This 98-nucleotide sequence from Hartmannibacter diazotrophicus belongs to the Rfam family "rpsB sRNA". It is annotated as a small RNA.

[Rfam]
RNA sequence: CACACGCGGGGCCGCGGGUGCGCUGACGCGUACCCAUCCGGUGACCAAUGGAUUUUGGUCUCAUCCCCGCGGAGGAACAACCGGUAAAGGACAAAUAC
Numbered sequence: 001c002a003c004a005c006g007c008g009g010g011g012c013c014g015c016g017g018g019u020g021c022g023c024u025g026a027c028g029c030g031u032a033c034c035c036a037u038c039c040g041g042u043g044a045c046c047a048a049u050g051g052a053u054u055u056u057g058g059u060c061u062c063a064u065c066c067c068c069g070c071g072g073a074g075g076a077a078c079a080a081c082c083g084g085u086a087a088a089g090g091a092c093a094a095a096u097a098c
Base pairs, nucleotide, nucleotide: 001074003072005071006070007069008068009067010066016035017034018033019032043060044059045058046057047056048055